[Rfam]
RNA: 5' ureB small RNA
RNA sequence: CCUCGGGGACCUGCUGCGGGCAGAUGAAGUGAAUAUGCGUAUCGAUGGCGCCGGCGGUGAUGAUCUUGCCCUCGCCGGCAAUGACAUCGGUACAGCUCCCGACGACCAUGUUAGGCGCCACGCCGUCCAUGACGUCCGGGUUACCAGCCUUGCCAAUGCCGACAAUCAUGCCCUCCUUGAUGCCAAUGUCGGCCUUGUAUAUGCCGGACCAGUCGACGAUGAGGGCAUUGGUGACGACCAGGUCCAGCGUCUCGGCGUCAGACCGGCCGGUGGCCUGGCCCAUGCCCUCGCGCAG
Numbered sequence: 001c002c003u004c005g006g007g008g009a010c011c012u013g014c015u016g017c018g019g020g021c022a023g024a025u026g027a028a029g030u031g032a033a034u035a036u037g038c039g040u041a042u043c044g045a046u047g048g049c050g051c052c053g054g055c056g057g058u059g060a061u062g063a064u065c066u067u068g069c070c071c072u073c074g075c076c077g078g079c080a081a082u083g084a085c086a087u088c089g090g091u092a093c094a095g096c097u098c099c100c101g102a103c104g105a106c107c108a109u110g111u112u113a114g115g116c117g118c119c120a121c122g123c124c125g126u127c128c129a130u131g132a133c134g135u136c137c138g139g140g141u142u143a144c145c146a147g148c149c150u151u152g153c154c155a156a157u158g159c160c161g162a163c164a165a166u167c168a169u170g171c172c173c174u175c176c177u178u179g180a181u182g183c184c185a186a187u188g189u190c191g192g193c194c195u196u197g198u199a200u201a202u203g204c205c206g207g208a209c210c211a212g213u214c215g216a217c218g219a220u221g222a223g224g225g226c227a228u229u230g231g232u233g234a235c236g237a238c239c240a241g242g243u244c245c246a247g248c249g250u251c252u253c254g255g256c257g258u259c260a261g262a263c264c265g266g267c268c269g270g271u272g273g274c275c276u277g278g279c280c281c282a283u284g285c286c287c288u289c290g291c292g293c294a295g
Stems, first nucleotide, its partner, number of pairs: 002295002006291001008289002012164002015161002018076002022072002030053002034050001038047003057069003077154002081150001083148001090144003095141001098140003101136003107131002112129001114127003117123002170279003177273003181269002183266002192226005207214001229260003236253002241250001